[Rfam]
RNA sequence: GACAGCAAGAUAGCCCCCCUUCAUAUAUGUCCGACAAUAUGGGUCGGAUGUUUCUACCGGAUCACCGUAAAUGGUCUGACUAUGAAGGUGGUCUUUUCCUUU
Numbered sequence: 001g002a003c004a005g006c007a008a009g010a011u012a013g014c015c016c017c018c019c020u021u022c023a024u025a026u027a028u029g030u031c032c033g034a035c036a037a038u039a040u041g042g043g044u045c046g047g048a049u050g051u052u053u054c055u056a057c058c059g060g061a062u063c064a065c066c067g068u069a070a071a072u073g074g075u076c077u078g079a080c081u082a083u084g085a086a087g088g089u090g091g092u093c094u095u096u097u098c099c100u101u102u
Base pairs, nucleotide, nucleotide: 018088019087020086021085022084023083024082025081029049030048031047032046033045034044035043058078059077060076061075062074063073064072
RNA: Purine riboswitch aptamer
Organism: Jeotgalibacillus sp. R-1-5s-1